Source information: The record is a 146-nucleotide sequence from Affinirhizobium straminoryzae, which matches "Alphaproteobacterial sRNA ar9" in Rfam. It is annotated as a small RNA. Lineage of the source: Bacteria > Pseudomonadati > Pseudomonadota > Hyphomicrobiales > Affinirhizobium. A reference for the family is del Val et al. (2012), "A survey of sRNA families in alpha-proteobacteria", RNA Biol.

[Rfam]
RNA sequence: AGAAAAGAGGCAGGGAGUUCAAAUUUCUGCCAUUCGCGGUCAAGUCUUGGGAGGAUCAGAUCUUAGGCGCGCUCGCUCGCAGCCCCGGCAACGGUUAAAGGAUCACGCGACACUUGAAACAAGGCUGCAAAGCCUUGUUUUUUUUU
Dot-bracket structure: ..((((....((((((.......)))))).....((((.....((((.....))))..(((((..((((((......))).)))(((....))).....))))).))))........((((((((......))))))))...))))